[Rfam]
RNA sequence: GCUGUCCUCUAUUCACUACGGAUCGUCCGGCACGUACCUGCCGGUGAAGGAGAUACAC
Numbered sequence: 001g002c003u004g005u006c007c008u009c010u011a012u013u014c015a016c017u018a019c020g021g022a023u024c025g026u027c028c029g030g031c032a033c034g035u036a037c038c039u040g041c042c043g044g045u046g047a048a049g050g051a052g053a054u055a056c057a058c
Stems, first nucleotide, its partner, number of pairs: 009050002012048004027044006

Rfam assigns this 58-nucleotide RNA sequence to the family "msiK RNA". It is one of the family's seed sequences.